[Rfam]
RNA sequence: GUUGUUGUAUUUAACUCAAUCCACAUGGGUUGAGGUGGAUUGAGGUGGAAUUUAGUUUAAGUUACACUCCAACCCAUCCCAACAUACGUGGAUUGAUGUGAAUCCGACU
Numbered sequence: 001g002u003u004g005u006u007g008u009a010u011u012u013a014a015c016u017c018a019a020u021c022c023a024c025a026u027g028g029g030u031u032g033a034g035g036u037g038g039a040u041u042g043a044g045g046u047g048g049a050a051u052u053u054a055g056u057u058u059a060a061g062u063u064a065c066a067c068u069c070c071a072a073c074c075c076a077u078c079c080c081a082a083c084a085u086a087c088g089u090g091g092a093u094u095g096a097u098g099u100g101a102a103u104c105c106g107a108c109u
Stems, first nucleotide, its partner, number of pairs: 004108004009103005016096009026086002029083004035077004040072003045067003